Rfam assigns this 129-nucleotide RNA from Streptomyces sp. NWU339 to the family "Streptomyces RNA 5676". The source organism's lineage runs through Bacteria, Actinomycetota, Actinomycetes, Kitasatosporales and Streptomyces. It is annotated as a small RNA. Identified by deep sequencing of transcriptome at the end of exponential growth phase.
[Rfam]
RNA sequence: AGAUGAGAGACACACCCGCUCACAGGGGACUGUGAACGGUUCGGGCCGAGGCCUCCCCAGCUUCGACCUGGUCGUGCCCUCGCGCACACAACCGGAACCUCCGGAUUCCGGGUCUCCUCACCGAUCGGA
Numbered sequence: 001a002g003a004u005g006a007g008a009g010a011c012a013c014a015c016c017c018g019c020u021c022a023c024a025g026g027g028g029a030c031u032g033u034g035a036a037c038g039g040u041u042c043g044g045g046c047c048g049a050g051g052c053c054u055c056c057c058c059a060g061c062u063u064c065g066a067c068c069u070g071g072u073c074g075u076g077c078c079c080u081c082g083c084g085c086a087c088a089c090a091a092c093c094g095g096a097a098c099c100u101c102c103g104g105a106u107u108c109c110g111g112g113u114c115u116c117c118u119c120a121c122c123g124a125u126c127g128g129a
Stems, first nucleotide, its partner, number of pairs: 004120004009116002016039003020035006041071005047065006074087004092111006099104001121128002